[Rfam]
RNA: Small nucleolar RNA SNORD26
Organism: Jaculus jaculus
RNA sequence: CUGUAGUGAUGAUUUACAACCUGAACUCUCUCUUUCUGAUGCUUUCGUGGAGAAAACGAAAUUUAUAAAUUCUGAGUAGC
Numbered sequence: 001c002u003g004u005a006g007u008g009a010u011g012a013u014u015u016a017c018a019a020c021c022u023g024a025a026c027u028c029u030c031u032c033u034u035u036c037u038g039a040u041g042c043u044u045u046c047g048u049g050g051a052g053a054a055a056a057c058g059a060a061a062u063u064u065a066u067a068a069a070u071u072c073u074g075a076g077u078a079g080c
Base pairs, nucleotide, nucleotide: 001079002078003077004076